[Rfam]
RNA sequence: CAACGCCAGGGUUGUAAGUCGCUCUGGAUAAUAGCGUCUGCUAAAUGACUAAAA
Numbered sequence: 001c002a003a004c005g006c007c008a009g010g011g012u013u014g015u016a017a018g019u020c021g022c023u024c025u026g027g028a029u030a031a032u033a034g035c036g037u038c039u040g041c042u043a044a045a046u047g048a049c050u051a052a053a054a
Base pairs, nucleotide, nucleotide: 013043014041015040016039020036021035022034023033025031
RNA: UnaL2 LINE 3' element
Organism: Coregonus sp. 'balchen'